[Rfam]
A member of the RNA family "Eukaryotic large subunit ribosomal RNA" from Neospora caninum, 286 nucleotides of a longer RNA.
RNA sequence: GAGUCUAACAUAUGUGCGAGUAUGCGGGUUUUACUCCUGUAUGCGCAAUAAAGUGAGAGUAGGGAGAUUUUGGCUUUGCCAUUCUUCGCACCUACGACCACCACGAUCUCUGAGAGAGGUUUGAGUUGGAGCAUAUCUGUUAGGACCCGAAAGAUGGUGAACUAUGCCUGAGUAGAAUGAAGUCAGGGGAAACCCUGAUGGAGGUUCGUAGCGAUACUGACGUGCAAAUCGUUCGUCAAACUUGGGUUAGGGGCGAAAGACUAAUCGAACCAUCUAGUAGCUGGUU
Numbered sequence: 001g002a003g004u005c006u007a008a009c010a011u012a013u014g015u016g017c018g019a020g021u022a023u024g025c026g027g028g029u030u031u032u033a034c035u036c037c038u039g040u041a042u043g044c045g046c047a048a049u050a051a052a053g054u055g056a057g058a059g060u061a062g063g064g065a066g067a068u069u070u071u072g073g074c075u076u077u078g079c080c081a082u083u084c085u086u087c088g089c090a091c092c093u094a095c096g097a098c099c100a101c102c103a104c105g106a107u108c109u110c111u112g113a114g115a116g117a118g119g120u121u122u123g124a125g126u127u128g129g130a131g132c133a134u135a136u137c138u139g140u141u142a143g144g145a146c147c148c149g150a151a152a153g154a155u156g157g158u159g160a161a162c163u164a165u166g167c168c169u170g171a172g173u174a175g176a177a178u179g180a181a182g183u184c185a186g187g188g189g190a191a192a193c194c195c196u197g198a199u200g201g202a203g204g205u206u207c208g209u210a211g212c213g214a215u216a217c218u219g220a221c222g223u224g225c226a227a228a229u230c231g232u233u234c235g236u237c238a239a240a241c242u243u244g245g246g247u248u249a250g251g252g253g254c255g256a257a258a259g260a261c262u263a264a265u266c267g268a269a270c271c272a273u274c275u276a277g278u279a280g281c282u283g284g285u286u
Base pairs, nucleotide, nucleotide: 005143006142007141008140009139010138012136013135014134015133016132017131020044021043022042025039026038027037028036048054049053059095060094061093062092063091066087067086097126098125099123100122101119102118107113108112146284147283149281153274154273155272156271157270158269162250163249164248166247167246168245169244170243171242172241173239175207176206177205178204182199183198184197185196186195187194188193211236212235213234214233216232217231219230220229252262253261

NCBI's taxonomy places the organism under Eukaryota, Apicomplexa, Conoidasida, Coccidia, Neospora.